Annotation:
The family of this 212-nucleotide sequence from Sphingomonas piscis is "permuted transfer-messenger RNA". Pairs were carried over by alignment from the consensus structure, which is taken from published work. Bacterial tmRNA, also known as 10Sa RNA or SsrA, is named for its dual tRNA and mRNA-like properties. Its role is to liberate the mRNA from a stalled ribosome. To accomplish this part of the tmRNA is used as a reading frame that ends in a translation stop signal. The broken mRNA is replaced in the ribosome by the tmRNA and translation of the tmRNA leads to addition of a proteolysis tag to the incomplete protein enabling recognition by a protease. It is annotated as a non-coding RNA gene.

RNA sequence: GUCGGUAGAGUAUCGGGUGAAAUAAGCGUUUCGGACCCGGGGGCAGUACCCCGGCGCCUCCACCACCAGCGGCAGACCUGGCCGUUGCUGAUGGGGGCGAAAUAGGAUCGACGAGCGUGGUAAAGGCCUGGUUGCCGAUCGGUAUGAGACCACCGCGACGGCUCAUUCACACAAGUGCCAACGAUAACGAGGCUCUUGCUAUUGCUGCGUAA
Numbered sequence: 001g002u003c004g005g006u007a008g009a010g011u012a013u014c015g016g017g018u019g020a021a022a023u024a025a026g027c028g029u030u031u032c033g034g035a036c037c038c039g040g041g042g043g044c045a046g047u048a049c050c051c052c053g054g055c056g057c058c059u060c061c062a063c064c065a066c067c068a069g070c071g072g073c074a075g076a077c078c079u080g081g082c083c084g085u086u087g088c089u090g091a092u093g094g095g096g097g098c099g100a101a102a103u104a105g106g107a108u109c110g111a112c113g114a115g116c117g118u119g120g121u122a123a124a125g126g127c128c129u130g131g132u133u134g135c136c137g138a139u140c141g142g143u144a145u146g147a148g149a150c151c152a153c154c155g156c157g158a159c160g161g162c163u164c165a166u167u168c169a170c171a172c173a174a175g176u177g178c179c180a181a182c183g184a185u186a187a188c189g190a191g192g193c194u195c196u197u198g199c200u201a202u203u204g205c206u207g208c209g210u211a212a
Stems, first nucleotide, its partner, number of pairs: 001139005015129004027117003031114003037054005055099007140155004